[Rfam]
RNA sequence: AGGUGGACUUUUUGAGAGGGUCAAACUAAACAGCAAUAUUUAAGAUUCUCAAUGCUUAAAUUAAAUUCACUCUUGGGAAGGUCUGAGAUUGGGGCCAACAUCGGCACUAAGAGGGCCUUUCCUGAGCCUGAGAGAGUUCCCAAAGAGCAGGGCCUCCCUGUGAGGGCAGACUGGGCAGGAGAUGCUAGGAGCCCAUCCUUGGGCAGGGGCCUGGCGAUUUAGCUUAGCUGGGCCUUGGAACAGACUCAACAACUGUGAACUGAGUUCAAUGGCUGAGUAAGGCACCCUAUACUGGAGCCUCAUAACCCAGUUCAGAUCACUCUCCCUUGCCU
Dot-bracket structure: (((((((.[[..[..(((((.......((.((....................)).))............)))))........(((((......(........(((.(.....).)))((((........))))(((((............(((((..........................................................................)))))........))))).....)..................]..]]((.((((.............)))).)).......))))).......)))...))))
RNA: Nuclear RNase P
Organism: Fukomys damarensis